[Rfam]
RNA sequence: UCGAUACAAUGAUGAGCGCAUAGUUCAGCAGAUUUAACCGUGAAGAACAACCAUGUCUUUCGCUCCUAGCUGAUGUGUUGG
Numbered sequence: 001u002c003g004a005u006a007c008a009a010u011g012a013u014g015a016g017c018g019c020a021u022a023g024u025u026c027a028g029c030a031g032a033u034u035u036a037a038c039c040g041u042g043a044a045g046a047a048c049a050a051c052c053a054u055g056u057c058u059u060u061c062g063c064u065c066c067u068a069g070c071u072g073a074u075g076u077g078u079u080g081g
Base pairs, nucleotide, nucleotide: 004078005077006076007075008074
RNA: Small nucleolar RNA snR60/Z15/Z230/Z193/J17